[Rfam]
RNA sequence: AAUCAUCUUCGGGGCGAGGCGCAAUUCCUCACCGGCAGUUAAAGUCUGCGAGCAAAUUUUACAUUUGCAGGAUCCUGUGUAAUUCAGGUACCGACAGUAUAGUCUGGAUGAGAGAAGAAAAUU
Numbered sequence: 001a002a003u004c005a006u007c008u009u010c011g012g013g014g015c016g017a018g019g020c021g022c023a024a025u026u027c028c029u030c031a032c033c034g035g036c037a038g039u040u041a042a043a044g045u046c047u048g049c050g051a052g053c054a055a056a057u058u059u060u061a062c063a064u065u066u067g068c069a070g071g072a073u074c075c076u077g078u079g080u081a082a083u084u085c086a087g088g089u090a091c092c093g094a095c096a097g098u099a100u101a102g103u104c105u106g107g108a109u110g111a112g113a114g115a116a117g118a119a120a121a122u123u
Stems, first nucleotide, its partner, number of pairs: 003121001006118005017029003031103002033093002035049004044091002052068003074088004095106003